[Rfam]
RNA sequence: UUCAUGCCGUAACAUGAAGUUUUGCAUAUCCCGCUGCUAGCGGGACAGUGAACUGAAUGUGGCUAU
Numbered sequence: 001u002u003c004a005u006g007c008c009g010u011a012a013c014a015u016g017a018a019g020u021u022u023u024g025c026a027u028a029u030c031c032c033g034c035u036g037c038u039a040g041c042g043g044g045a046c047a048g049u050g051a052a053c054u055g056a057a058u059g060u061g062g063c064u065a066u
Stems, first nucleotide, its partner, number of pairs: 001018006027047001029045005
RNA: queA RNA